[Rfam]
RNA: Manganese Mn2+ riboswitch aptamer (yybP-ykoY)
Organism: Sphingomonas sp. IC081
RNA sequence: CCGGCCCGUCAUCUGGGGAGUAGCCGCCUGCGUCCCCGCAGGACCCGUCGUCAACAUACUUGGUCGAGAGACCAUGGCGCACGGGAGGACGGAUCACCGUCCGGGCGAGACCAAUGGCGUUGCAGCUCCGUCC
Numbered sequence: 001c002c003g004g005c006c007c008g009u010c011a012u013c014u015g016g017g018g019a020g021u022a023g024c025c026g027c028c029u030g031c032g033u034c035c036c037c038g039c040a041g042g043a044c045c046c047g048u049c050g051u052c053a054a055c056a057u058a059c060u061u062g063g064u065c066g067a068g069a070g071a072c073c074a075u076g077g078c079g080c081a082c083g084g085g086a087g088g089a090c091g092g093a094u095c096a097c098c099g100u101c102c103g104g105g106c107g108a109g110a111c112c113a114a115u116g117g118c119g120u121u122g123c124a125g126c127u128c129c130g131u132c133c
Base pairs, nucleotide, nucleotide: 027042028041029040044085045084046083047082048081049079050078051077052076053075061074062073063072064071065070087133088132089131090130091129092128